The family of this 270-nucleotide RNA sequence from Sciurus carolinensis is "Mason-Pfizer monkey virus packaging signal". The literature on the family includes a 1995 paper in J Virol by Harrison et al., "Secondary structure model of the Mason-Pfizer monkey virus 5' leader sequence: identification of a structural motif common to a variety of retroviruses". The family's RNA type in Rfam is cis-regulatory element. This family represents a group of sequences that are related to the Mason-Pfizer monkey virus (MPMV) packaging signal. The packaging signal is located in the 5' UTR and is required for specific RNA encapsidation.
RNA sequence: CGGCGCCCAACGUGGGGCUCGGACGGGCAAUUCGCCAGGGAAGAGGCGUUUAAUCCAUCGGCCCAACAAAGCGAAAGUCAGUUCAAGAAGGAUCGCCGGGAGCUGCCGCGCCCCUCACAAAGGUACAGAAACGCCUAAUUAUGGGGCAAGAAUUAAGUGGGCAUGAAAUUUUUGUUAAGCAAUUAAAAGAAGCCUUAAAGACACCAGGAGGAAAGGUUAAGAGUAAUGAUCUUUUUAAGUUUUUUGACCUUAUUAAGGACACCUGUCCGU
Dot-bracket structure: .....(((................)))....((.(.......).))...............................((..((.....(((..(((.(.......).)))..)))...)).))........(.((((....))))).......(((((.................................)).)))......(.(((((...((((((.......)))))).......))))).)........(.((((....)))).)